This 62-nucleotide sequence from Pseudoduganella lurida belongs to the Rfam family "Betaproteobacteria toxic small RNA".
[Rfam]
RNA sequence: UGUCUCCUCUAUUCUCCUCCAAGGAAAUAGAUUCAAGCCCGCCUCACGGUGGGCUUUUUUUU
Numbered sequence: 001u002g003u004c005u006c007c008u009c010u011a012u013u014c015u016c017c018u019c020c021a022a023g024g025a026a027a028u029a030g031a032u033u034c035a036a037g038c039c040c041g042c043c044u045c046a047c048g049g050u051g052g053g054c055u056u057u058u059u060u061u062u
Stems, first nucleotide, its partner, number of pairs: 008031005013025002036055008
The organism belongs to Pseudoduganella, within Bacteria. Overexpression in amino aid rich medium attenuates growth, suggesting role in repressing amino acid intake and metabolism. A search with the family's covariance model found it, with a score of 58 bits. Pairs were carried over by alignment from the consensus structure, which was predicted with WAR.